[Rfam]
RNA: MIR529 microRNA precursor family
RNA sequence: UCGUCAAGGCUAACGGAAGAAGAGAGAGAGUACAGCUUUGGGUUGUUAAGGUCAUAAGACUUGUGUGACUCUGAGAUCUUUUUCGCCAAGGCUGUACCCUCUCUCUUCGUCUCUUAGCAUCUUGAUGC
Numbered sequence: 001u002c003g004u005c006a007a008g009g010c011u012a013a014c015g016g017a018a019g020a021a022g023a024g025a026g027a028g029a030g031u032a033c034a035g036c037u038u039u040g041g042g043u044u045g046u047u048a049a050g051g052u053c054a055u056a057a058g059a060c061u062u063g064u065g066u067g068a069c070u071c072u073g074a075g076a077u078c079u080u081u082u083u084c085g086c087c088a089a090g091g092c093u094g095u096a097c098c099c100u101c102u103c104u105c106u107u108c109g110u111c112u113c114u115u116a117g118c119a120u121c122u123u124g125a126u127g128c
Stems, first nucleotide, its partner, number of pairs: 005124002009118001012115002015112003019108010030097011